The family of this 87-nucleotide RNA sequence from Caloranaerobacter sp. TR13 is "c-di-GMP-I riboswitch aptamer".
The family's consensus secondary structure is taken from published work.
The match comes from Rfam's covariance-model search (84 bits).
Taxonomically the source falls in Caloranaerobacter (Bacteria, Bacillati, Bacillota, Thermohalobacteraceae).
RNA sequence: UGAAUAUUUUGGCAAACUAACCGAAAGGUUAGGACGCAAAGCUAUGGGCCUAAAGGAUUAAUAUCCUAUGGUUGCCAGGCUGCCCAU
Numbered sequence: 001u002g003a004a005u006a007u008u009u010u011g012g013c014a015a016a017c018u019a020a021c022c023g024a025a026a027g028g029u030u031a032g033g034a035c036g037c038a039a040a041g042c043u044a045u046g047g048g049c050c051u052a053a054a055g056g057a058u059u060a061a062u063a064u065c066c067u068a069u070g071g072u073u074g075c076c077a078g079g080c081u082g083c084c085c086a087u
Stems, first nucleotide, its partner, number of pairs: 012037002017032006040081004045077003048072003055066004